Shown here is a 102-nucleotide sequence from Corchorus capsularis, a member of the family "MIR2275 microRNA precursor family". Gene Ontology terms of the family: miRNA-mediated post-transcriptional gene silencing and RISC complex. The organism belongs to Corchorus, within Eukaryota. It scores 71 bits against the family's covariance model.
RNA sequence: GAAUUGUAUGUGAGAGUUGGAGGGAAUUAAACCAAAGCAUCCAUUUAAAAUUAUUAUGCCUCUAUUUUGGUUUAAUUUCCUCCAAUAUCUCACCUCCAAUUC
Numbered sequence: 001g002a003a004u005u006g007u008a009u010g011u012g013a014g015a016g017u018u019g020g021a022g023g024g025a026a027u028u029a030a031a032c033c034a035a036a037g038c039a040u041c042c043a044u045u046u047a048a049a050a051u052u053a054u055u056a057u058g059c060c061u062c063u064a065u066u067u068u069g070g071u072u073u074a075a076u077u078u079c080c081u082c083c084a085a086u087a088u089c090u091c092a093c094c095u096c097c098a099a100u101u102c
Stems, first nucleotide, its partner, number of pairs: 004099003008095001011092004016086006023079008032070006